This 77-nucleotide RNA from Xanthomonas oryzae belongs to the Rfam family "Xanthomonas sRNA sX9". A search with the family's covariance model found it, with a score of 71 bits. The base pairs follow the family's consensus structure, which was predicted with RNAalifold. The family's RNA type in Rfam is small RNA.
[Rfam]
RNA sequence: AUGGACCGCGCGUCCACUGCGGUUGUGAGCGCGCCGUCCGCGUCCACCUGAGAGCGGCUCGCUACGUGUUGUUAGCC
Dot-bracket structure: .(((((.....)))))...((((.........))))...........((((.((..............)).))))..